[Rfam]
Record summary
U11 spliceosomal RNA: a 127-nucleotide RNA from Dendrobium nobile. For this family Rfam cites "Additional low-abundance human small nuclear ribonucleoproteins: U11, U12, etc" (Montzka and Steitz, Proc Natl Acad Sci U S A, 1988). It scores 63 bits against the family's covariance model.
RNA sequence: GAAAAGGGUCAAUUGGCUAUGCAUGCCACACACAUCUUUUAAUUGAUGGGUGUUGUAUGGUUAUCAAGAUAUACGACCGACAUAAUUUAUAGAUCAUAUAGGGUUGGCUUGCUCGGCUAACCCUAAA
Numbered sequence: 001g002a003a004a005a006g007g008g009u010c011a012a013u014u015g016g017c018u019a020u021g022c023a024u025g026c027c028a029c030a031c032a033c034a035u036c037u038u039u040u041a042a043u044u045g046a047u048g049g050g051u052g053u054u055g056u057a058u059g060g061u062u063a064u065c066a067a068g069a070u071a072u073a074c075g076a077c078c079g080a081c082a083u084a085a086u087u088u089a090u091a092g093a094u095c096a097u098a099u100a101g102g103g104u105u106g107g108c109u110u111g112c113u114c115g116g117c118u119a120a121c122c123c124u125a126a127a
Stems, first nucleotide, its partner, number of pairs: 008081003014028004029052003033048004053076007099125009109116002